[Rfam]
RNA sequence: CGCAUAUUUUGCCCAGGCGGAGCUCGACCGCCCGUUCCGCAAAUGAUUGCCUUCAUCGAAGAGCAUCGUGGAGUUUUCGGGGUCGAGCCGAUCUGCCGUGUUCUGCAGAUCGCCCCG
Numbered sequence: 001c002g003c004a005u006a007u008u009u010u011g012c013c014c015a016g017g018c019g020g021a022g023c024u025c026g027a028c029c030g031c032c033c034g035u036u037c038c039g040c041a042a043a044u045g046a047u048u049g050c051c052u053u054c055a056u057c058g059a060a061g062a063g064c065a066u067c068g069u070g071g072a073g074u075u076u077u078c079g080g081g082g083u084c085g086a087g088c089c090g091a092u093c094u095g096c097c098g099u100g101u102u103c104u105g106c107a108g109a110u111c112g113c114c115c116c117g
Stems, first nucleotide, its partner, number of pairs: 016032005078117005089112002092109005098103001
Record summary: This 117-nucleotide RNA from Roseovarius sp. TE539 belongs to the Rfam family "ALIL pseudoknot". The family's consensus secondary structure is taken from published work.